[Rfam]
Nucleotides: 103
Stems, first nucleotide, its partner, number of pairs: 001103004009093005015041004023035005043088008
Number, partner (000 for none) and nucleotide at each position: 001103c002102u003101g004100a005000a006000g007000g008000c009093c010092g011091c012090g013089u014000u015041c016040g017039g018038g019000u020000c021000a022000c023035u024034u025033g026032c027031g028000g029000a030000c031027u032026g033025c034024a035023a036000c037000a038018c039017c040016c041015g042000a043088u044087c045086u046085c047084c048083c049082u050081c051000a052000u053000g054000g055000u056000g057000c058000c059000g060000c061000c062000g063000g064000a065000g066000a067000u068000g069000g070000c071000a072000g073000c074000g075000c076000c077000g078000a079000g080000c081050g082049a083048g084047g085046g086045g087044g088043a089013g090012c091011g092010c093009g094000u095000c096000a097000c098000c099000g100004u101003c102002a103001g
Shown here is a 103-nucleotide RNA sequence, a member of the family "L4-Archaeoglobi ribosomal protein leades". For this family Rfam cites "Discovery of 20 novel ribosomal leader candidates in bacteria and archaea" (Eckert and Weinberg, BMC Microbiol, 2020).